[Rfam]
RNA sequence: UGCUUAUUCAAGAUGUUUAUUUAAAAGAAGUCUGUAUGAAUUCCAUAGUAGUUUCAGUGCAUUACUGAGAUAAGCU
Dot-bracket structure: .(((((((............................................................))))))).
Numbered sequence: 001u002g003c004u005u006a007u008u009c010a011a012g013a014u015g016u017u018u019a020u021u022u023a024a025a026a027g028a029a030g031u032c033u034g035u036a037u038g039a040a041u042u043c044c045a046u047a048g049u050a051g052u053u054u055c056a057g058u059g060c061a062u063u064a065c066u067g068a069g070a071u072a073a074g075c076u
Stems, first nucleotide, its partner, number of pairs: 002075007

Notes: This 76-nucleotide RNA from Sclerurus mexicanus belongs to the Rfam family "Small nucleolar RNA SNORD72". NCBI's taxonomy places the organism under Eukaryota, Archosauria, Telluraves, Passeriformes, Sclerurus. It is annotated as a C/D-box small nucleolar RNA. snoRNA HBII-240 belongs to the CD family of snoRNAs. It is the human orthologue of the mouse MBII-240 and is predicted to guide 2'O-ribose methylation of the large 28S rRNA at residue U4590.